[Rfam]
RNA: c-di-GMP-I riboswitch aptamer
RNA sequence: UCUCGAUAAAGGCAAACCUGGUGAAAACCAGCGACGCAAAGCUACAGGGGCUACCGACUCUAGUGAUCACACAUGAGUCCACGCCAGCCAGUUACCGAA
Numbered sequence: 001u002c003u004c005g006a007u008a009a010a011g012g013c014a015a016a017c018c019u020g021g022u023g024a025a026a027a028c029c030a031g032c033g034a035c036g037c038a039a040a041g042c043u044a045c046a047g048g049g050g051c052u053a054c055c056g057a058c059u060c061u062a063g064u065g066a067u068c069a070c071a072c073a074u075g076a077g078u079c080c081a082c083g084c085c086a087g088c089c090a091g092u093u094a095c096c097g098a099a
Stems, first nucleotide, its partner, number of pairs: 012037002018031005040093004047089002049085003056079004